[Rfam]
RNA sequence: AGACCUGAAGAGAGAAGCAGGGUCUAAUCCAUAGCCUAUGUGGUAGCUAUUGAUCAGCACUUGCCUCUCUCUUUCUCUCUG
Number, nucleotide and partner (000 for none) at each position: 001a000002g000003a000004c000005c000006u000007g000008a073009a072010g071011a070012g069013a068014g067015a066016a000017g064018c063019a062020g061021g000022g000023u000024c057025u056026a000027a054028u053029c052030c000031a000032u049033a048034g047035c046036c000037u000038a000039u000040g000041u000042g000043g000044u000045a000046g035047c034048u033049a032050u000051u000052g029053a028054u027055c000056a025057g024058c000059a000060c000061u020062u019063g018064c017065c000066u015067c014068u013069c012070u011071c010072u009073u008074u000075c000076u000077c000078u000079c000080u000081g000
RNA: mir-574 microRNA precursor family
Organism: Pipistrellus kuhlii